This 124-nucleotide sequence belongs to the Rfam family "LOOT RNA". It is annotated as a small RNA.

RNA sequence: AGCCUAAACCAUGAGAUUUUAUCGUGGCAGGGCGAAAAAUCCCAGUGAAAGAUAGAGAACUCCUCGUCAGAGUUGCCUUUCACUGGGUGACAAUCCGAAAGGGUUGUCGGUAGCUUUUGCUACC
Numbered sequence: 001a002g003c004c005u006a007a008a009c010c011a012u013g014a015g016a017u018u019u020u021a022u023c024g025u026g027g028c029a030g031g032g033c034g035a036a037a038a039a040u041c042c043c044a045g046u047g048a049a050a051g052a053u054a055g056a057g058a059a060c061u062c063c064u065c066g067u068c069a070g071a072g073u074u075g076c077c078u079u080u081c082a083c084u085g086g087g088u089g090a091c092a093a094u095c096c097g098a099a100a101g102g103g104u105u106g107u108c109g110g111u112a113g114c115u116u117u118u119g120c121u122a123c124c
Base pairs, nucleotide, nucleotide: 002033003032004031009027010026011025012024013023014022041087042086043085044084045083046082047081048080049079050078051077058074059073060072061071089108090107091106092105093104094103095102096101109124110123111122112121113120114119